Rfam assigns this 103-nucleotide RNA from Pseudosulfitobacter pseudonitzschiae to the family "TPP riboswitch aptamer (THI element)". Gene Ontology term of the family: thiamine pyrophosphate binding. A search with the family's covariance model found it, with a score of 70 bits.
[Rfam]
RNA sequence: GCACAACUGUUGGGGUGCCCUAACCGGGCUGAGAUGCACGCGCUGCAAACCCAUUGAACCUGAACCGGUUAGGACCGGCGGAGGGAACAGCUUGCGGAGCUCU
Number, nucleotide and partner (000 for none) at each position: 001g000002c000003a000004c000005a000006a000007c090008u089009g088010u087011u053012g052013g051014g050015g000016u047017g029018c028019c027020c026021u000022a000023a000024c000025c000026g020027g019028g018029c017030u000031g000032a000033g000034a000035u000036g046037c045038a044039c000040g000041c000042g000043c000044u038045g037046c036047a016048a000049a000050c014051c013052c012053a011054u000055u000056g000057a000058a000059c084060c083061u082062g000063a000064a000065c078066c077067g076068g075069u000070u000071a000072g000073g000074a000075c068076c067077g066078g065079c000080g000081g000082a061083g060084g059085g000086a000087a010088c009089a008090g007091c000092u000093u000094g000095c000096g000097g000098a000099g000100c000101u000102c000103u000